[Rfam]
RNA sequence: AACGUUCAUCUCUCCUGGAGCCUGGCUAACGUGCUGGAGAGACAGAAGUAAGGGAACACCCCGAAGGAACGUGCC
Numbered sequence: 001a002a003c004g005u006u007c008a009u010c011u012c013u014c015c016u017g018g019a020g021c022c023u024g025g026c027u028a029a030c031g032u033g034c035u036g037g038a039g040a041g042a043c044a045g046a047a048g049u050a051a052g053g054g055a056a057c058a059c060c061c062c063g064a065a066g067g068a069a070c071g072u073g074c075c
Base pairs, nucleotide, nucleotide: 003071004070005069006068007067009042010041011040012039013038014037015036045072052061053060
RNA: Glutamine riboswitch aptamer (glnA leader)